[Rfam]
Nucleotides: 089
Stems, first nucleotide, its partner, number of pairs: 002086007010034009035045003046078001049076004056069004
Number, partner (000 for none) and nucleotide at each position: 001000u002086u003085a004084a005083a006082a007081c008080u009000g010034g011033a012032u013031c014030c015029a016028g017027g018026u019000u020000g021000u022000u023000c024000c025000c026018a027017c028016c029015u030014g031013g032012a033011u034010u035045u036044c037043c038000c039000a040000c041000a042000g043037g044036g045035a046078g047000u048000g049076g050075u051074a052073c053000u054000c055000u056069g057068u058067u059066a060000u061000u062000a063000c064000g065000g066059u067058a068057a069056c070000u071000u072000u073052g074051u075050a076049c077000g078046c079000c080008a081007g082006u083005u084004u085003u086002a087000u088000c089000u